[Rfam]
RNA sequence: GUGCGGGCUAGCCUGGAGGGUUCGGCGUCCUCUGCCACUCGAAAACGCCGAUAUGCGAGAGGCGAAGCUCGAGGGAGGCACUCUGGUCGUCAGUUCCAGCUCGAUGCACUACGAUGAGGCAUCGUCCUGCGGGGUCGUCGGUGAUACGGUGGCAAACUGGAGGGUUUGUUGCCGUAUCUUUGUCAUGGAUACCGGUUUAGGCCCGGAAGGGAGCAGACUCACCAUGAACGCUCGGCGCUCGCAGGGUAGCGAUGUGGAGGAAGGUAUCGAGGGUCUGGCUGACGGUAAGGGUGACGACCGAGAGCGUGCCCGCAC
Numbered sequence: 001g002u003g004c005g006g007g008c009u010a011g012c013c014u015g016g017a018g019g020g021u022u023c024g025g026c027g028u029c030c031u032c033u034g035c036c037a038c039u040c041g042a043a044a045a046c047g048c049c050g051a052u053a054u055g056c057g058a059g060a061g062g063c064g065a066a067g068c069u070c071g072a073g074g075g076a077g078g079c080a081c082u083c084u085g086g087u088c089g090u091c092a093g094u095u096c097c098a099g100c101u102c103g104a105u106g107c108a109c110u111a112c113g114a115u116g117a118g119g120c121a122u123c124g125u126c127c128u129g130c131g132g133g134g135u136c137g138u139c140g141g142u143g144a145u146a147c148g149g150u151g152g153c154a155a156a157c158u159g160g161a162g163g164g165u166u167u168g169u170u171g172c173c174g175u176a177u178c179u180u181u182g183u184c185a186u187g188g189a190u191a192c193c194g195g196u197u198u199a200g201g202c203c204c205g206g207a208a209g210g211g212a213g214c215a216g217a218c219u220c221a222c223c224a225u226g227a228a229c230g231c232u233c234g235g236c237g238c239u240c241g242c243a244g245g246g247u248a249g250c251g252a253u254g255u256g257g258a259g260g261a262a263g264g265u266a267u268c269g270a271g272g273g274u275c276u277g278g279c280u281g282a283c284g285g286u287a288a289g290g291g292u293g294a295c296g297a298c299c300g301a302g303a304g305c306g307u308g309c310c311c312g313c314a315c
Stems, first nucleotide, its partner, number of pairs: 001315008011063004015033007038059004043054001067305004073299002077295001079293003082289001084287001087285007096278003100271008110261001112259001119255007126245008134236004139230002141180001143178016183227006194219004202211003